[Rfam]
Nucleotides: 171
Base pairs, nucleotide, nucleotide: 002105003104010100011099012098013097014096015095016094022032024031025030033085034084035083039081041078042077048070049069050068051067052066053065054064055063056062109169110168111167112166113165118132120131121130122129123128133157134156135155139153141150142149
Number, partner (000 for none) and nucleotide at each position: 001000g002105c003104g004000g005000a006000u007000g008000a009000u010100g011099a012098c013097u014096g015095c016094u017000c018000u019000a020000g021000a022032c023000a024031c025030c026000g027000a028000g029000a030025g031024g032022g033085g034084c035083c036000g037000a038000a039081g040000a041078a042077g043000c044000a045000a046000a047000c048070c049069g050068g051067g052066g053065g054064a055063a056062u057000g058000c059000a060000u061000c062056g063055u064054u065053c066052c067051u068050c069049u070048g071000c072000g073000g074000a075000a076000a077042c078041u079000g080000a081039c082000a083035g084034g085033c086000a087000a088000a089000a090000g091000g092000a093000a094016g095015g096014c097013a098012g099011u100010c101000g102000g103000a104003c105002g106000a107000a108000u109169c110168u111167u112166u113165g114000g115000a116000g117000a118132g119000a120131a121130u122129g123128c124000a125000u126000u127000a128123g129122c130121a131120u132118c133157g134156c135155c136000u137000a138000c139153g140000u141150g142149g143000c144000a145000a146000g147000a148000a149142c150141c151000a152000a153139c154000u155135g156134g157133c158000a159000a160000a161000a162000g163000g164000a165113c166112a167111g168110a169109g170000a171000g
Rfam assigns this 171-nucleotide RNA to the family "glycine-GGAnGA riboswitch aptamer". The base pairs follow the family's consensus structure, which is taken from published work. Rfam describes the family as follows. glycine-GGAnGA riboswitch is a variant of glycine riboswitch that have in common a U69A change. This riboswitch is associate with genes that encode either saccharopine dehydrogenase or amino acid transporters and other genes with not predicted function. A reference for the family is Weinberg et al. (2017), "Bioinformatic analysis of riboswitch structures uncovers variant classes with altered ligand specificity", Proc Natl Acad Sci U S A. The sequence is in the family's curated seed alignment.